Shown here is an 87-nucleotide sequence from Denitratisoma oestradiolicum, a member of the family "SAH (S-adenosyl-L-homocysteine) riboswitch aptamer". A search with the family's covariance model found it, with a score of 55 bits. The base pairs follow the family's consensus structure, which is taken from published work.

RNA sequence: GCUUCCGAGGAGCGCUGCAAGGCGGUGGGCUGAACAUCAGGCCCCGGCCCUAGGCUCGGAACUUUUAUUCAACGGCGCUCACCGAAC
Dot-bracket structure: ..((((((............(((.(...................).)))......))))))..........................